[Rfam]
Rfam assigns this 310-nucleotide RNA from Methanocalculus chunghsingensis to the family "Archaeal signal recognition particle RNA".
The organism belongs to Methanocalculus, within Archaea.
The family is grouped with related families in Rfam's "SRP clan".
It scores 187 bits against the family's covariance model.
Its family is annotated with SRP-dependent cotranslational protein targeting to membrane, signal sequence recognition and signal recognition particle, plasma membrane targeting in the Gene Ontology.
Pairs were carried over by alignment from the consensus structure, which is taken from published work.
A reference for the family is Rosenblad et al. (2003), "SRPDB: Signal Recognition Particle Database", Nucleic Acids Res.
RNA sequence: ACGGGAACUAGCCCGGGUGGUUAGACGUCACCUGUGACCCGAAACCGUCGAUAUGCGGGGGGCGAAGUCUGAGGAAGGCUGAGGCAGCCCUCGGAAAGCAGGUACUUCCGACGUAGAAGCCUCGUCCUGUGAGGUCAACGGACAGGGACCAAUCUUCCGGAGGGAAGUGCGGCCUGUUGCCGCAGGGAUCGGUUCAGGCCCGGAAGGGAGCAGACUUACUGUGGACGUAUGGCGCCCACGGGGAAGCGGGGUGGAGAAGGAAGCCCUGUGGAACGAGGGUAUGUGCGGUCGACCGAUGACACGUUCCCAU
Number, nucleotide and partner (000 for none) at each position: 001a310002c000003g308004g307005g306006a305007a304008c303009u000010a000011g063012c062013c061014c060015g033016g032017g031018u030019g029020g028021u027022u000023a000024g000025a000026c000027g021028u020029c019030a018031c017032c016033u015034g000035u000036g000037a000038c059039c058040c057041g056042a000043a054044a000045c000046c000047g000048u000049c000050g000051a000052u000053a000054u043055g000056c041057g040058g039059g038060g014061g013062g012063c011064g000065a000066a000067g300068u299069c298070u000071g000072a000073g294074g293075a000076a000077g290078g289079c288080u287081g286082a284083g000084g282085c000086a000087g280088c279089c278090c277091u276092c275093g274094g000095a000096a000097a000098g000099c000100a000101g267102g266103u000104a000105c263106u262107u261108c260109c259110g000111a000112c256113g000114u254115a000116g000117a000118a000119g252120c251121c250122u249123c248124g247125u246126c242127c241128u240129g239130u238131g237132a000133g235134g233135u232136c231137a230138a228139c227140g226141g178142a177143c176144a175145g174146g173147g000148a000149c172150c171151a000152a000153u000154c167155u166156u165157c164158c163159g000160g000161a000162g000163g158164g157165a156166a155167g154168u000169g000170c000171g150172g149173c146174c145175u144176g143177u142178u141179g000180c224181c223182g222183c221184a220185g219186g000187g000188a000189u000190c000191g216192g215193u214194u213195c000196a000197g000198g000199c208200c207201c206202g000203g000204a000205a000206g201207g200208g199209a000210g000211c000212a000213g194214a193215c192216u191217u000218a000219c185220u184221g183222u182223g181224g180225a000226c140227g139228u138229a000230u137231g136232g135233c134234g000235c133236c000237c131238a130239c129240g128241g127242g126243g000244a000245a000246g125247c124248g123249g122250g121251g120252u119253g000254g114255a000256g112257a000258a000259g109260g108261a107262a106263g105264c000265c000266c102267u101268g000269u000270g000271g000272a000273a000274c093275g092276a091277g090278g089279g088280u087281a000282u084283g000284u082285g000286c081287g080288g079289u078290c077291g000292a000293c074294c073295g000296a000297u000298g069299a068300c067301a000302c000303g008304u007305u006306c005307c004308c003309a000310u001